[Rfam]
RNA sequence: CCCAUAAGAAAUAAAAGGUCCCUUUAGGUCUUUAACUUUAUUUCAAGUAUCGGUUUGGUCCCUUCUGUUAAUUUAAUGCAAAAAUUAACAAAAAAAACGUUAAAUUUUGGUCGCUUAACUUAUUUAAUUAGUAUUAAUUUGGUCCCUUAGCUUAUUUAAUUAGUAUUAGUUUGGUCCCUAAACUUAACGUUUUUUUGAAUUAAAUUAACAGAAAUGACCAAACUAAUACUUUAAAUAAAGUUAAGGGACCUAAACGGACCUUUUAUUACUUAUGGGA
Numbered sequence: 001c002c003c004a005u006a007a008g009a010a011a012u013a014a015a016a017g018g019u020c021c022c023u024u025u026a027g028g029u030c031u032u033u034a035a036c037u038u039u040a041u042u043u044c045a046a047g048u049a050u051c052g053g054u055u056u057g058g059u060c061c062c063u064u065c066u067g068u069u070a071a072u073u074u075a076a077u078g079c080a081a082a083a084a085u086u087a088a089c090a091a092a093a094a095a096a097a098c099g100u101u102a103a104a105u106u107u108u109g110g111u112c113g114c115u116u117a118a119c120u121u122a123u124u125u126a127a128u129u130a131g132u133a134u135u136a137a138u139u140u141g142g143u144c145c146c147u148u149a150g151c152u153u154a155u156u157u158a159a160u161u162a163g164u165a166u167u168a169g170u171u172u173g174g175u176c177c178c179u180a181a182a183c184u185u186a187a188c189g190u191u192u193u194u195u196u197g198a199a200u201u202a203a204a205u206u207a208a209c210a211g212a213a214a215u216g217a218c219c220a221a222a223c224u225a226a227u228a229c230u231u232u233a234a235a236u237a238a239a240g241u242u243a244a245g246g247g248a249c250c251u252a253a254a255c256g257g258a259c260c261u262u263u264u265a266u267u268a269c270u271u272a273u274g275g276g277a
Stems, first nucleotide, its partner, number of pairs: 002275007023254003027250003030246013045231006
Annotation:
The family of this 277-nucleotide RNA from Medicago truncatula is "MIR2655 microRNA precursor family". It scores 196 bits against the family's covariance model.